[Rfam]
RNA sequence: UCAAGUUGAAUAUUGAUACCGUAGACCGUAGGUGCCGAGAGGCUUAAUUUCCUACCGAGGUGUGUGCAUACAUUCGUUACCUGUCCUUGCCUUUCAGGGAUGCGUAAGAUUAAUGUAACGUCAUGCCUCCGCGAUGUCUGCGGGGGGCAUUUUUAAUGCCUUC
Numbered sequence: 001u002c003a004a005g006u007u008g009a010a011u012a013u014u015g016a017u018a019c020c021g022u023a024g025a026c027c028g029u030a031g032g033u034g035c036c037g038a039g040a041g042g043c044u045u046a047a048u049u050u051c052c053u054a055c056c057g058a059g060g061u062g063u064g065u066g067c068a069u070a071c072a073u074u075c076g077u078u079a080c081c082u083g084u085c086c087u088u089g090c091c092u093u094u095c096a097g098g099g100a101u102g103c104g105u106a107a108g109a110u111u112a113a114u115g116u117a118a119c120g121u122c123a124u125g126c127c128u129c130c131g132c133g134a135u136g137u138c139u140g141c142g143g144g145g146g147g148c149a150u151u152u153u154u155a156a157u158g159c160c161u162u163c
Stems, first nucleotide, its partner, number of pairs: 028055005034043003125148006131141003

Shown here is a 163-nucleotide RNA from Cohnella rhizosphaerae, a member of the family "Ribosomal protein L10 leader".